[Rfam]
RNA sequence: GAUCCUGGAGGUCAACAUCCGGCAGCGCGAUGCGCCCCCGGGUGUUUUUCCG
Numbered sequence: 001g002a003u004c005c006u007g008g009a010g011g012u013c014a015a016c017a018u019c020c021g022g023c024a025g026c027g028c029g030a031u032g033c034g035c036c037c038c039c040g041g042g043u044g045u046u047u048u049u050c051c052g
Base pairs, nucleotide, nucleotide: 016044017043018042019041020040021039022038025035026034027033028032

The record is a 52-nucleotide sequence from Tianweitania sediminis, which matches "ffh sRNA" in Rfam. A search with the family's covariance model found it, with a score of 62 bits. The base pairs follow the family's consensus structure, which is taken from published work. A reference for the family is Meyer et al. (2009), "Identification of candidate structured RNAs in the marine organism 'Candidatus Pelagibacter ubique'", BMC Genomics.